This 507-nucleotide part of an RNA from Theileria orientalis belongs to the Rfam family "Eukaryotic large subunit ribosomal RNA". The base pairs follow the family's consensus structure, which is taken from published work. Rfam links the family to the GO terms structural constituent of ribosome and ribosome. It scores 3119 bits against the family's covariance model. NCBI's taxonomy places the organism under Eukaryota, Sar, Piroplasmida, Theileria, Theileria orientalis.
RNA sequence: UCUUCCGAAGUUUCUCUCAGGAUAGCUGGAAUUCAUUGUGCUUAGCACUUUUUCAGUUUUACCAGGUAAAGCUAAUGAUUAGAGGUAUCGGUGGGCUGUGCCUGUUGACCUAUUCUCAAACUUUAAAUGGGUAAGACCCCGGUCGUUGCUUAAUUUGAACUUCCGGGUUGAAUGUGAAUUCUUAGUGGGCCAAUUUUGGUAAGCAAUAUUGGCGAUGAGGGAUGCACCUAACGCUGGGUUAAGGUGCCUAAAUACCUGCUCAUCAGAUACCAUAAAAGGUGUUGGUUCAUAUUGACAGCAGGACGGUGGUCAUGGAAGUCGAAAUCCGCUAAGGAGUGUGUAACAACUCACCUGCCGAAUGAACUGGCCCUGAAAAUGGAUGGCGCUCAAGCAGGUUACCGAAACCCGGCCAUUGUAGCUGGUUUUUCUCUACAAUGUGUAGGAAGACGUGGGCGUAGUAGCGAAGUAAGAUGCGUAAGCUCUUAUGGAACUGCGUCUAGUGCAGAU
Numbered sequence: 001u002c003u004u005c006c007g008a009a010g011u012u013u014c015u016c017u018c019a020g021g022a023u024a025g026c027u028g029g030a031a032u033u034c035a036u037u038g039u040g041c042u043u044a045g046c047a048c049u050u051u052u053u054c055a056g057u058u059u060u061a062c063c064a065g066g067u068a069a070a071g072c073u074a075a076u077g078a079u080u081a082g083a084g085g086u087a088u089c090g091g092u093g094g095g096c097u098g099u100g101c102c103u104g105u106u107g108a109c110c111u112a113u114u115c116u117c118a119a120a121c122u123u124u125a126a127a128u129g130g131g132u133a134a135g136a137c138c139c140c141g142g143u144c145g146u147u148g149c150u151u152a153a154u155u156u157g158a159a160c161u162u163c164c165g166g167g168u169u170g171a172a173u174g175u176g177a178a179u180u181c182u183u184a185g186u187g188g189g190c191c192a193a194u195u196u197u198g199g200u201a202a203g204c205a206a207u208a209u210u211g212g213c214g215a216u217g218a219g220g221g222a223u224g225c226a227c228c229u230a231a232c233g234c235u236g237g238g239u240u241a242a243g244g245u246g247c248c249u250a251a252a253u254a255c256c257u258g259c260u261c262a263u264c265a266g267a268u269a270c271c272a273u274a275a276a277a278g279g280u281g282u283u284g285g286u287u288c289a290u291a292u293u294g295a296c297a298g299c300a301g302g303a304c305g306g307u308g309g310u311c312a313u314g315g316a317a318g319u320c321g322a323a324a325u326c327c328g329c330u331a332a333g334g335a336g337u338g339u340g341u342a343a344c345a346a347c348u349c350a351c352c353u354g355c356c357g358a359a360u361g362a363a364c365u366g367g368c369c370c371u372g373a374a375a376a377u378g379g380a381u382g383g384c385g386c387u388c389a390a391g392c393a394g395g396u397u398a399c400c401g402a403a404a405c406c407c408g409g410c411c412a413u414u415g416u417a418g419c420u421g422g423u424u425u426u427u428c429u430c431u432a433c434a435a436u437g438u439g440u441a442g443g444a445a446g447a448c449g450u451g452g453g454c455g456u457a458g459u460a461g462c463g464a465a466g467u468a469a470g471a472u473g474c475g476u477a478a479g480c481u482c483u484u485a486u487g488g489a490a491c492u493g494c495g496u497c498u499a500g501u502g503c504a505g506a507u
Base pairs, nucleotide, nucleotide: 001447002446003445004444005443006442011024013022014021015020028182029181030180031179032178033177057136058135059134060133061132062131063130069124070122071121076118077117078116081113083111084110085109088108089107090106091105092104093103095101139166140165141164142163145160146159147158189213190212191211192210193209194208196206197205198204218229219228220227233410234409235408236407237406239404243400244399245398252397254396257393258392259391277371278370279369281368282367283366284365285364286363287362288361289360290359298355299354300353301352302351304328305327306326310322311321329333334349338347339346411437412436413435414434415433416432417431418430448502450499451498452497453496454495455494456493457492458491459490466486467485473480474479